[Rfam]
RNA sequence: CUCUGGAAAGCGGCGGAUGCAAGUCCGCCCACCGACGGGUGUAACCUGUCCGGCUGAUCGAGCCGGUUCGGGGAAAUCUCUCAGGUCCCAAGACAGAG
Dot-bracket structure: (((((......((((..........)))).(((((...(.(...((.........................))....).))).))).......)))))
RNA: Glycine riboswitch aptamer